MIR1120/MIR1122 microRNA precursor family: an 87-nucleotide RNA sequence from Aegilops tauschii. NCBI's taxonomy places the organism under Eukaryota, Magnoliopsida, Petrosaviidae, Triticodae, Aegilops tauschii. The base pairs follow the family's consensus structure, which was predicted with RNAalifold.
[Rfam]
RNA sequence: AUACUCCCUCUGUCUCAUAAUAUAAAAACGUUUUUGGCACUACAUUAAUGCCAAAAACGUUCUUAUAUUAUGGGACGGAGGAAGUAC
Numbered sequence: 001a002u003a004c005u006c007c008c009u010c011u012g013u014c015u016c017a018u019a020a021u022a023u024a025a026a027a028a029c030g031u032u033u034u035u036g037g038c039a040c041u042a043c044a045u046u047a048a049u050g051c052c053a054a055a056a057a058c059g060u061u062c063u064u065a066u067a068u069u070a071u072g073g074g075a076c077g078g079a080g081g082a083a084g085u086a087c
Base pairs, nucleotide, nucleotide: 003085004084005083007081008080009079010078011077013075014074015073016072017071019069020068021067022066023065024064025063027061028060029059030058031057032056033055034054035053036052037051038050039049041047
Record summary
On this family, see Yao et al., Genome Biol 2007: "Cloning and characterization of microRNAs from wheat (Triticum aestivum L.)".